The family of this 35-nucleotide RNA sequence from Aquimarina spongiae is "DUF805b RNA". It scores 42 bits against the family's covariance model. By type it is a cis-regulatory element.
[Rfam]
RNA sequence: AAGGUGGUGUCCGAAAAACCUAAAUAGAGUAGGAG
Numbered sequence: 001a002a003g004g005u006g007g008u009g010u011c012c013g014a015a016a017a018a019c020c021u022a023a024a025u026a027g028a029g030u031a032g033g034a035g
Stems, first nucleotide, its partner, number of pairs: 002021004010034003
The family is grouped with related families in Rfam's "DUF805 clan". The organism belongs to Aquimarina, within Bacteria.